RNA sequence: CUAACUGUCAGCACAAGUGUCUGGUGCAGCGUGAGGUCAAGGGGAUCUGUUUCAGAGAGUGUGAACACGGGGAAAUUCAUCCUUCCAGCGUUCAAAUCAUGGUUGGGCAUCUUCCCGGAAGGAGAGAUGUCUUCCGUGUUAAAGCGACGGGCACCGCGUCAGGCUGGCAACAGAACAGCGUUACCGCUCCGUUUGGACGGGUGGCAGGACCGUGAAACUCUCCACUCUC
Numbered sequence: 001c002u003a004a005c006u007g008u009c010a011g012c013a014c015a016a017g018u019g020u021c022u023g024g025u026g027c028a029g030c031g032u033g034a035g036g037u038c039a040a041g042g043g044g045a046u047c048u049g050u051u052u053c054a055g056a057g058a059g060u061g062u063g064a065a066c067a068c069g070g071g072g073a074a075a076u077u078c079a080u081c082c083u084u085c086c087a088g089c090g091u092u093c094a095a096a097u098c099a100u101g102g103u104u105g106g107g108c109a110u111c112u113u114c115c116c117g118g119a120a121g122g123a124g125a126g127a128u129g130u131c132u133u134c135c136g137u138g139u140u141a142a143a144g145c146g147a148c149g150g151g152c153a154c155c156g157c158g159u160c161a162g163g164c165u166g167g168c169a170a171c172a173g174a175a176c177a178g179c180g181u182u183a184c185c186g187c188u189c190c191g192u193u194u195g196g197a198c199g200g201g202u203g204g205c206a207g208g209a210c211c212g213u214g215a216a217a218c219u220c221u222c223c224a225c226u227c228u229c
Stems, first nucleotide, its partner, number of pairs: 012019002055229007073219001076216005081208003085204003089199009098138005105132009115122002140144001146189002148186003156181004164173003

This 229-nucleotide RNA from Microchloropsis salina belongs to the Rfam family "Protozoan signal recognition particle RNA". By type it is a non-coding RNA gene. Gene Ontology terms of the family: signal recognition particle, endoplasmic reticulum targeting and SRP-dependent cotranslational protein targeting to membrane, signal sequence recognition. For this family Rfam cites "Towards the structure of the mammalian signal recognition particle" (Wild et al., Curr Opin Struct Biol, 2002). Its Rfam clan is "SRP clan".